[Rfam]
RNA sequence: CGUCGGGACUUCUGUCGUGGGUGAGAUGGUGCCGAUGCCACGUAAUUCGGGGCAGCGAGCUUCAUCUCUCCUCGACAGAAGCCUCUAAUGCU
Numbered sequence: 001c002g003u004c005g006g007g008a009c010u011u012c013u014g015u016c017g018u019g020g021g022u023g024a025g026a027u028g029g030u031g032c033c034g035a036u037g038c039c040a041c042g043u044a045a046u047u048c049g050g051g052g053c054a055g056c057g058a059g060c061u062u063c064a065u066c067u068c069u070c071c072u073c074g075a076c077a078g079a080a081g082c083c084u085c086u087a088a089u090g091c092u
Stems, first nucleotide, its partner, number of pairs: 005084003009081004014076004019072003023068007
Dot-bracket structure: ....(((.((((.((((.(((.(((((((................................))))))).))))))).)))))))........

The record is a 92-nucleotide RNA sequence from Malus domestica, which matches "MIR5225 microRNA precursor family" in Rfam. The sequence is in the family's curated seed alignment. Taxonomically the source falls in Malus (Eukaryota, Streptophytina, Embryophyta, Magnoliopsida). The family's consensus secondary structure was predicted with RNAalifold.